[Rfam]
RNA: Group II catalytic intron D1-D4-2
Nucleotides: 120
Base pairs, nucleotide, nucleotide: 001016002015003014004013005012017042018041019040020039021038022037024035025034026033027032047119049092050091051090052089053088054087055081056080058078059077060076062074063073064072097116098115099114100113101112102111
Number, partner (000 for none) and nucleotide at each position: 001016g002015a003014a004013g005012g006000u007000g008000u009000g010000g011000c012005c013004c014003u015002u016001c017042g018041g019040u020039g021038u022037c023000g024035c025034c026033c027032u028000g029000c030000g031000g032027g033026g034025g035024g036000a037022g038021a039020u040019a041018c042017c043000a044000a045000a046000c047119c048000g049092c050091c051090u052089c053088a054087u055081g056080c057000u058078g059077c060076g061000u062074u063073g064072g065000c066000u067000g068000a069000a070000g071000a072064c073063c074062g075000u076060c077059g078058u079000g080056g081055u082000g083000a084000g085000c086000g087054a088053u089052g090051a091050g092049g093000a094000a095000a096000a097116g098115g099114c100113g101112c102111a103000c104000g105000u106000c107000g108000u109000g110000a111102u112101g113100c114099g115098u116097c117000a118000g119047g120000u